[Rfam]
RNA sequence: ACUCAACACUAUUCAAUUAGAAAGGAUGAGUCUUGAUUAGUAAAGUAUGCCAACUUUGUUUUGGAUUCUUGAUCAAUCAGUUAGUCCUAAACCUGUCUAUAUGGAGUUU
Numbered sequence: 001a002c003u004c005a006a007c008a009c010u011a012u013u014c015a016a017u018u019a020g021a022a023a024g025g026a027u028g029a030g031u032c033u034u035g036a037u038u039a040g041u042a043a044a045g046u047a048u049g050c051c052a053a054c055u056u057u058g059u060u061u062u063g064g065a066u067u068c069u070u071g072a073u074c075a076a077u078c079a080g081u082u083a084g085u086c087c088u089a090a091a092c093c094u095g096u097c098u099a100u101a102u103g104g105a106g107u108u109u
Base pairs, nucleotide, nucleotide: 023088024087025086026085027084034079035078036077037076038075043070044069045068050064051063052062053061
6S-Flavo RNA: a 109-nucleotide sequence from Tenacibaculum sp. MAR_2009_124.
By type it is a small RNA.
It scores 100 bits against the family's covariance model.